[Rfam]
RNA sequence: UCUGGCAGUGAUGACACACUUGCCCUCACUGAGCUCAGAGAGUUCCCUGAUGAGAGCAGCAAAAUGCGCUCAGUGGAUCCGAGCCAGA
Numbered sequence: 001u002c003u004g005g006c007a008g009u010g011a012u013g014a015c016a017c018a019c020u021u022g023c024c025c026u027c028a029c030u031g032a033g034c035u036c037a038g039a040g041a042g043u044u045c046c047c048u049g050a051u052g053a054g055a056g057c058a059g060c061a062a063a064a065u066g067c068g069c070u071c072a073g074u075g076g077a078u079c080c081g082a083g084c085c086a087g088a
Stems, first nucleotide, its partner, number of pairs: 001088006